Rfam assigns this 493-nucleotide part of an RNA from Cyanidioschyzon merolae to the family "Eukaryotic large subunit ribosomal RNA". It is one of the family's seed sequences. Lineage of the source: Eukaryota > Rhodophyta > Bangiophyceae > Cyanidiales > Cyanidioschyzon.
RNA sequence: CCCUCCGAAGUUUCCCUCAGGAUAGCCGGAGCAGGCGGUCCAGUUUUACCGGGUAAAGCGAAUGACUCGAGGCCUCGGGGGAGCGCAUCCCUCGACCUAGUCUCAAACUCUAAAUCGGUAAGGAGCGCGCGCUGCUUUGGUGAGCGCGCGCGGACAAUGGACUGCUCCGAGUGGGCCAUUUUUGGUAAGCAGAACUGGCGAUGCGGGAUGCUCCGAAAGCGGCGUUAAGGUGCCGAGUGGCACGCUCAUGCAGACCCCACAAAAGGUGUUGAUGCAUUUAGACAGCAGGACGGUGGCCAUGGAAGUCGGCACCCGCUAAGGAGUGUGUAACAACUCACCUGCCGAAUGCCUCAGCCCUGAAAAUGGAUGGCGCUCCAGCGUGCAACCGACACGCCGCCACCGGCGCGAGCGGUUGCGCCGGUGUGUAGGAGGGCGUGGGGCCCGUGCCGAAGCGCCGGGCGCGAGCCUGCGUGGAACGGGCCCCAGUGCGGAU
Number, nucleotide and partner (000 for none) at each position: 001c433002c432003c431004u430005c429006c428007g000008a000009a000010g000011u024012u000013u022014c021015c020016c000017u000018c000019a000020g015021g014022a013023u000024a011025g000026c000027c169028g168029g167030a166031g165032c164033a163034g000035g000036c000037g000038g000039u000040c000041c000042a000043g000044u123045u122046u121047u120048a119049c118050c117051g116052g000053g000054u000055a000056a111057a109058g108059c000060g000061a000062a000063u105064g104065a103066c000067u000068c100069g000070a098071g097072g096073c000074c000075u095076c094077g093078g092079g091080g090081g000082a088083g000084c000085g000086c000087a000088u082089c000090c080091c079092u078093c077094g076095a075096c072097c071098u070099a000100g068101u000102c000103u065104c064105a063106a000107a000108c058109u057110c000111u056112a000113a000114a000115u000116c051117g050118g049119u048120a047121a046122g045123g044124a000125g151126c150127g149128c148129g147130c146131g145132c144133u143134g000135c000136u000137u000138u000139g000140g000141u000142g000143a133144g132145c131146g130147c129148g128149c127150g126151c125152g000153g000154a000155c000156a000157a000158u000159g000160g000161a000162c000163u033164g032165c031166u030167c029168c028169g027170a000171g000172u000173g000174g000175g199176c198177c197178a196179u000180u194181u193182u192183u191184g190185g000186u000187a000188a000189g000190c184191a183192g182193a181194a180195c000196u178197g177198g176199c175200g000201a000202u000203g000204c215205g214206g213207g000208a000209u000210g000211c000212u000213c206214c205215g204216a000217a000218a000219g397220c396221g395222g394223c393224g000225u391226u000227a000228a000229g387230g386231u385232g000233c000234c000235g000236a000237g000238u384239g000240g383241c000242a000243c380244g379245c378246u000247c000248a000249u000250g000251c000252a000253g000254a000255c000256c000257c000258c000259a000260c000261a000262a000263a000264a358265g357266g356267u000268g355269u354270u353271g352272a351273u000274g349275c348276a347277u346278u000279u000280a000281g000282a000283c000284a000285g342286c341287a340288g339289g338290a000291c315292g314293g313294u000295g000296g310297c309298c308299a000300u000301g000302g000303a000304a000305g000306u000307c000308g298309g297310c296311a000312c000313c293314c292315g291316c320317u000318a000319a000320g316321g336322a000323g000324u000325g334326u333327g000328u000329a000330a000331c000332a000333a326334c325335u000336c321337a000338c289339c288340u287341g286342c285343c000344g000345a000346a277347u276348g275349c274350c000351u272352c271353a270354g269355c268356c266357c265358u264359g000360a000361a000362a000363a000364u000365g000366g000367a000368u000369g000370g000371c000372g000373c000374u000375c000376c000377a000378g245379c244380g243381u000382g000383c240384a238385a231386c230387c229388g000389a000390c000391a225392c000393g223394c222395c221396g220397c219398c423399a422400c421401c420402g419403g418404c417405g416406c415407g000408a000409g000410c000411g000412g000413u000414u000415g406416c405417g404418c403419c402420g401421g400422u399423g398424u000425g000426u000427a000428g006429g005430a004431g003432g002433g001434c488435g000436u485437g484438g483439g482440g481441c480442c479443c478444g477445u476446g000447c000448c000449g000450a000451a000452g472453c471454g000455c000456c000457g000458g467459g466460c465461g000462c000463g000464a000465g460466c459467c458468u000469g000470c000471g453472u452473g000474g000475a000476a445477c444478g443479g442480g441481c440482c439483c438484c437485a436486g000487u000488g434489c000490g000491g000492a000493u000